[Rfam]
RNA sequence: GGAGAUGGAUGGGUCCUGGUGGGCCCCGCGGCCUUCAAAGCCGUUGUGAGGCACGCAGAAUGUCUCGGGUGUGUUCGAUUCGCACACGUCUCC
Number, nucleotide and partner (000 for none) at each position: 001g093002g092003a091004g090005a089006u088007g087008g085009a000010u000011g026012g025013g024014u023015c022016c021017u000018g000019g000020u000021g016022g015023g014024c013025c012026c011027c000028g044029c043030g042031g041032c040033c000034u000035u000036c000037a000038a000039a000040g032041c031042c030043g029044u028045u000046g000047u067048g066049a065050g064051g063052c000053a000054c000055g000056c000057a000058g000059a000060a000061u000062g000063u051064c050065u049066c048067g047068g000069g000070u084071g083072u082073g081074u000075u000076c000077g000078a000079u000080u000081c073082g072083c071084a070085c008086a000087c007088g006089u005090c004091u003092c002093c001
RNA: Selenocysteine transfer RNA
Organism: Denitrobacterium detoxificans